[Rfam]
RNA sequence: UUGUUAUCAAGAAAGGCAGAGGGAAUGGACCCUGUGAAGCCUUAGCAACCCUUUAUUUUAUAGAGAAGGUGCUAAAUUCUACCAAUAUGGAUAGAUAACCA
Numbered sequence: 001u002u003g004u005u006a007u008c009a010a011g012a013a014a015g016g017c018a019g020a021g022g023g024a025a026u027g028g029a030c031c032c033u034g035u036g037a038a039g040c041c042u043u044a045g046c047a048a049c050c051c052u053u054u055a056u057u058u059u060a061u062a063g064a065g066a067a068g069g070u071g072c073u074a075a076a077u078u079c080u081a082c083c084a085a086u087a088u089g090g091a092u093a094g095a096u097a098a099c100c101a
Base pairs, nucleotide, nucleotide: 001101003099004098005097006096007095008094013043014042015041016040017039021032022031023030026081027080028079029078044073045072046071047070049069050068051065052064053063054062077093082090083089084088
Shown here is a 101-nucleotide RNA from Lutibacter profundi, a member of the family "SAM riboswitch aptamer (S box leader)". Lineage of the source: Bacteria > Pseudomonadati > Bacteroidota > Flavobacteriaceae > Lutibacter. The match comes from Rfam's covariance-model search (85 bits).